[Rfam]
RNA sequence: AGAGGUCACAAGUUCAAGGCCAUAACAGAAAUGCUCAUAGCAUGGCCCUGUCAGAUUCCAAUGAAUCUGUAAACUCUGCU
Number, nucleotide and partner (000 for none) at each position: 001a000002g000003a000004g000005g000006u000007c000008a000009c000010a000011a000012g000013u000014u000015c000016a000017a000018g047019g046020c045021c044022a000023u000024a080025a000026c078027a077028g076029a075030a000031a043032u042033g041034c000035u000036c000037a000038u000039a000040g000041c033042a032043u031044g021045g020046c019047c018048c000049u000050g000051u000052c069053a068054g067055a066056u065057u064058c063059c000060a000061a000062u000063g058064a057065a056066u055067c054068u053069g052070u000071a000072a000073a000074c000075u029076c028077u027078g026079c000080u024